[Rfam]
The family of this 47-nucleotide sequence from Bacteroides pyogenes is "CRISPR RNA direct repeat element". The match comes from Rfam's covariance-model search (64 bits). The base pairs follow the family's consensus structure, which was predicted with WAR. The source organism's lineage runs through Bacteria, Bacteroidota, Bacteroidia, Bacteroidales and Bacteroides.

RNA sequence: GUUGUGAUUUACUUUCAAUUUAGUAUCUUUGAACCAUUGAGUACAGC
Numbered sequence: 001g002u003u004g005u006g007a008u009u010u011a012c013u014u015u016c017a018a019u020u021u022a023g024u025a026u027c028u029u030u031g032a033a034c035c036a037u038u039g040a041g042u043a044c045a046g047c
Stems, first nucleotide, its partner, number of pairs: 014033005
Dot-bracket structure: .............(((((..........)))))..............